[Rfam]
RNA sequence: GAGAAGCUGAACCCUUAUGAUCCGUACUCACCGUCUACUAGGCCUACUACUCAACGCAUCUUGUUUGCGCGGUAUGCCUGUGGACGAAGUUCGGAACUGACUCAGCCGAUCACCCAUAAGAAACCCGCGCUACUGCGCGGGUUUUUUU
Dot-bracket structure: .....(((((....(((.(.((.........(((((((.........((((...((((.......)))).)))).....))))))).......)).)))).))))).............(((((((((((....)))))))))))...
Numbered sequence: 001g002a003g004a005a006g007c008u009g010a011a012c013c014c015u016u017a018u019g020a021u022c023c024g025u026a027c028u029c030a031c032c033g034u035c036u037a038c039u040a041g042g043c044c045u046a047c048u049a050c051u052c053a054a055c056g057c058a059u060c061u062u063g064u065u066u067g068c069g070c071g072g073u074a075u076g077c078c079u080g081u082g083g084a085c086g087a088a089g090u091u092c093g094g095a096a097c098u099g100a101c102u103c104a105g106c107c108g109a110u111c112a113c114c115c116a117u118a119a120g121a122a123a124c125c126c127g128c129g130c131u132a133c134u135g136c137g138c139g140g141g142u143u144u145u146u147u148u
Stems, first nucleotide, its partner, number of pairs: 006106005015100003019097001021095002032086007048074004055069004120145011